The record is a 174-nucleotide RNA sequence from Parashewanella curva, which matches "Group II catalytic intron D1-D4-3" in Rfam. The organism belongs to Parashewanella, within Bacteria. Rfam links the family to the GO term Group II intron splicing.

RNA sequence: UUCAUCGUGAGGUGAAAUCUGAAGGAAGCAAAUGGCAAAACGUAGCUGUGACGAACAGAAACCUGAUAGUAGGCUGUUAUGACUUGGAUAACCUAGCCUUAGAUAGAAUAGUCCAAUGUCUCGACAAGAAGUGCAUAACAGUAAAUCAGGCAUGACUACGUGAAAGAGCAACGU
Numbered sequence: 001u002u003c004a005u006c007g008u009g010a011g012g013u014g015a016a017a018u019c020u021g022a023a024g025g026a027a028g029c030a031a032a033u034g035g036c037a038a039a040a041c042g043u044a045g046c047u048g049u050g051a052c053g054a055a056c057a058g059a060a061a062c063c064u065g066a067u068a069g070u071a072g073g074c075u076g077u078u079a080u081g082a083c084u085u086g087g088a089u090a091a092c093c094u095a096g097c098c099u100u101a102g103a104u105a106g107a108a109u110a111g112u113c114c115a116a117u118g119u120c121u122c123g124a125c126a127a128g129a130a131g132u133g134c135a136u137a138a139c140a141g142u143a144a145a146u147c148a149g150g151c152a153u154g155a156c157u158a159c160g161u162g163a164a165a166g167a168g169c170a171a172c173g174u
Stems, first nucleotide, its partner, number of pairs: 001016006028174002036166001040161006046154001048153003062150006073142003077138005082132002086114004093106003